[Rfam]
RNA sequence: CGUGUGGUGCCGGUGCAGGUGAAUUCCUGGCACGGGAGAGCGACGCGGCCCUUUACUGAGGU
Numbered sequence: 001c002g003u004g005u006g007g008u009g010c011c012g013g014u015g016c017a018g019g020u021g022a023a024u025u026c027c028u029g030g031c032a033c034g035g036g037a038g039a040g041c042g043a044c045g046c047g048g049c050c051c052u053u054u055a056c057u058g059a060g061g062u
Stems, first nucleotide, its partner, number of pairs: 001047005007041002011035001013033004
Notes: A member of the RNA family "L31-Gammaproteobacteria ribosomal protein leader", 62 nucleotides long. It is one of the family's seed sequences. Clan: Ribosomal Protein L31 Leader clan.